Rfam assigns this 396-nucleotide sequence from Pseudovibrio axinellae to the family "Bacterial RNase P class A". It scores 328 bits against the family's covariance model. Its family is annotated with ribonuclease P activity, dimeric ribonuclease P complex and tRNA processing in the Gene Ontology. The family's RNA type in Rfam is ribozyme. NCBI's taxonomy places the organism under Bacteria, Pseudomonadati, Pseudomonadota, Alphaproteobacteria, Pseudovibrio.
[Rfam]
RNA sequence: CCAGUCGGCUGGACGGUUGCUGCUGCAAGUGCUGAAAGGCCGCAGUGGAGGAAAGUCCGGGCUCCAUGGAAACACGGUGCCGGAUAACGUCCGGCGAGGGUGACCUUAGGGAAAGUGCCACAGAGAGUAUACCGCCAGUGCAUGCAUUGGUAAGGGUGAAAGGGUGGGGUAAGAGCCCACCGCGUUUUUGGCAACAAAAACGGCAUGGUAAACCCCACCGGGAGCAAGACCGAAUAGGGGCGGCGCGGAAGUUUACUUCCAGUCAUGUUUCUAGACCUGACCGCCCGGGUUGGUCGCUAGAGGUGUUCAGUAAUGGGCAUCCCAGAUGAAUUGCCGUCGCGUAUGGGUGUAACAGCCUGUGCCUUACAAAACCCGGCUUACAGGCCGACUGGUAUU
Numbered sequence: 001c002c003a004g005u006c007g008g009c010u011g012g013a014c015g016g017u018u019g020c021u022g023c024u025g026c027a028a029g030u031g032c033u034g035a036a037a038g039g040c041c042g043c044a045g046u047g048g049a050g051g052a053a054a055g056u057c058c059g060g061g062c063u064c065c066a067u068g069g070a071a072a073c074a075c076g077g078u079g080c081c082g083g084a085u086a087a088c089g090u091c092c093g094g095c096g097a098g099g100g101u102g103a104c105c106u107u108a109g110g111g112a113a114a115g116u117g118c119c120a121c122a123g124a125g126a127g128u129a130u131a132c133c134g135c136c137a138g139u140g141c142a143u144g145c146a147u148u149g150g151u152a153a154g155g156g157u158g159a160a161a162g163g164g165u166g167g168g169g170u171a172a173g174a175g176c177c178c179a180c181c182g183c184g185u186u187u188u189u190g191g192c193a194a195c196a197a198a199a200a201c202g203g204c205a206u207g208g209u210a211a212a213c214c215c216c217a218c219c220g221g222g223a224g225c226a227a228g229a230c231c232g233a234a235u236a237g238g239g240g241c242g243g244c245g246c247g248g249a250a251g252u253u254u255a256c257u258u259c260c261a262g263u264c265a266u267g268u269u270u271c272u273a274g275a276c277c278u279g280a281c282c283g284c285c286c287g288g289g290u291u292g293g294u295c296g297c298u299a300g301a302g303g304u305g306u307u308c309a310g311u312a313a314u315g316g317g318c319a320u321c322c323c324a325g326a327u328g329a330a331u332u333g334c335c336g337u338c339g340c341g342u343a344u345g346g347g348u349g350u351a352a353c354a355g356c357c358u359g360u361g362c363c364u365u366a367c368a369a370a371a372c373c374c375g376g377c378u379u380a381c382a383g384g385c386c387g388a389c390u391g392g393u394a395u396u
Stems, first nucleotide, its partner, number of pairs: 001392010011381001012338006020048007053379003057376005062224004071272001075220005080094005095109001096107004110215002115213002117209003132155002134151007163181006182204001183202008228295004238286006264279002267276002302321008